[Rfam]
RNA sequence: UUUUAGGGCUCCUGCCAUGAGUAGCAUGCAUAGAGCAGCUUGAUUGCUCUGUGAUCGACAUCAAGAGAUUUUGGAAGCAUAAUCUUUUGGUAUCUGGGCAACUGGUGAUUGUUGGUCCUGGUGCCCAC
Numbered sequence: 001u002u003u004u005a006g007g008g009c010u011c012c013u014g015c016c017a018u019g020a021g022u023a024g025c026a027u028g029c030a031u032a033g034a035g036c037a038g039c040u041u042g043a044u045u046g047c048u049c050u051g052u053g054a055u056c057g058a059c060a061u062c063a064a065g066a067g068a069u070u071u072u073g074g075a076a077g078c079a080u081a082a083u084c085u086u087u088u089g090g091u092a093u094c095u096g097g098g099c100a101a102c103u104g105g106u107g108a109u110u111g112u113u114g115g116u117c118c119u120g121g122u123g124c125c126c127a128c
Stems, first nucleotide, its partner, number of pairs: 008078003012074001013026003017022001029053010054069003096126004101122005107117004
RNA: U11 spliceosomal RNA